c-di-AMP riboswitch aptamer (ydaO/yuaA leader): a 139-nucleotide RNA sequence from Paenibacillus sp. CAA11.

RNA sequence: AACAAUAACCAGCCGAAUUCCCAAGCACCUGGGAAACGGGGGAACCAGUUAUGGGUGAAUUGACCUCGAUUACAGAGGGUCAUAGGGAACCUUCAACCGAAUCCUCAAGCUAACCUCGCAGGCCUUGGAAGGAGUUUGA
Numbered sequence: 001a002a003c004a005a006u007a008a009c010c011a012g013c014c015g016a017a018u019u020c021c022c023a024a025g026c027a028c029c030u031g032g033g034a035a036a037c038g039g040g041g042g043a044a045c046c047a048g049u050u051a052u053g054g055g056u057g058a059a060u061u062g063a064c065c066u067c068g069a070u071u072a073c074a075g076a077g078g079g080u081c082a083u084a085g086g087g088a089a090c091c092u093u094c095a096a097c098c099g100a101a102u103c104c105u106c107a108a109g110c111u112a113a114c115c116u117c118g119c120a121g122g123c124c125u126u127g128g129a130a131g132g133a134g135u136u137u138g139a
Base pairs, nucleotide, nucleotide: 012123013122014121018035019034020033021032022031023030037118038117039116040115041114053104054103055102061082062081063080064079065078066077085098086097
A search with the family's covariance model found it, with a score of 64 bits.